[Rfam]
A member of the RNA family "Purine riboswitch aptamer" from Fictibacillus aquaticus, 104 nucleotides long.
RNA sequence: AACAAUUUAAUAGUUGCUGCUCGUAUAUGCUCGGUAAUAUGGUCUGAGUGUUUCUACCUGGUUCCCAAUGAAAGAACCGGACUACGGGUUAAAGUAUCGGUUUU
Number, nucleotide and partner (000 for none) at each position: 001a000002a000003c000004a000005a000006u000007u000008u000009a000010a000011u000012a000013g000014u000015u000016g000017c000018u000019g089020c088021u087022c086023g085024u084025a083026u000027a000028u000029g049030c048031u047032c046033g045034g044035u000036a000037a000038u000039a000040u000041g000042g000043u000044c034045u033046g032047a031048g030049u029050g000051u000052u000053u000054c000055u000056a000057c000058c080059u079060g078061g077062u076063u075064c074065c000066c000067a000068a000069u000070g000071a000072a000073a000074g064075a063076a062077c061078c060079g059080g058081a000082c000083u025084a024085c023086g022087g021088g020089u019090u000091a000092a000093a000094g000095u000096a000097u000098c000099g000100g000101u000102u000103u000104u000